[Rfam]
RNA: Plastid-psbA-1 3UTR RNA
RNA sequence: AAGCUCCAUCUAUUAAUGGAUAAGAUCUUGGUCUUAGUGUAGUUGAGUUUUUGAAAUUAAAGGAGCAAUAACCAAUUUCUUGUUCUAUCGAGCGGGUUGGUAUUGCUCCUUUA
Numbered sequence: 001a002a003g004c005u006c007c008a009u010c011u012a013u014u015a016a017u018g019g020a021u022a023a024g025a026u027c028u029u030g031g032u033c034u035u036a037g038u039g040u041a042g043u044u045g046a047g048u049u050u051u052u053g054a055a056a057u058u059a060a061a062g063g064a065g066c067a068a069u070a071a072c073c074a075a076u077u078u079c080u081u082g083u084u085c086u087a088u089c090g091a092g093c094g095g096g097u098u099g100g101u102a103u104u105g106c107u108c109c110u111u112u113a
Stems, first nucleotide, its partner, number of pairs: 005020005059112012074097001077094001079092003
Dot-bracket structure: ....(((((......)))))......................................((((((((((((...(..(.(((........))).)..)...)))))))))))).